[Rfam]
The family of this 104-nucleotide RNA from Virgibacillus phasianinus is "Purine riboswitch aptamer". Lineage of the source: Bacteria > Bacillati > Bacilli > Bacillaceae > Virgibacillus. A reference for the family is Mandal et al. (2003), "Riboswitches Control Fundamental Biochemical Pathways in Bacillus subtilis and Other Bacteria", Cell. It scores 60 bits against the family's covariance model.
RNA sequence: GCUGGACAAAGAAAAGCCAUUCGUAUAUCCUCGGGUAAUAUGGUCCUGAAAGUAUCUACCGGUGCACCGUAAACGCACUGACUAUGAAGGCGAAAUCUGUUCGU
Numbered sequence: 001g002c003u004g005g006a007c008a009a010a011g012a013a014a015a016g017c018c019a020u021u022c023g024u025a026u027a028u029c030c031u032c033g034g035g036u037a038a039u040a041u042g043g044u045c046c047u048g049a050a051a052g053u054a055u056c057u058a059c060c061g062g063u064g065c066a067c068c069g070u071a072a073a074c075g076c077a078c079u080g081a082c083u084a085u086g087a088a089g090g091c092g093a094a095a096u097c098u099g100u101u102c103g104u
Base pairs, nucleotide, nucleotide: 018090020088021087022086023085024084025083031049032048033047034046035045060080061079062078063077064076065075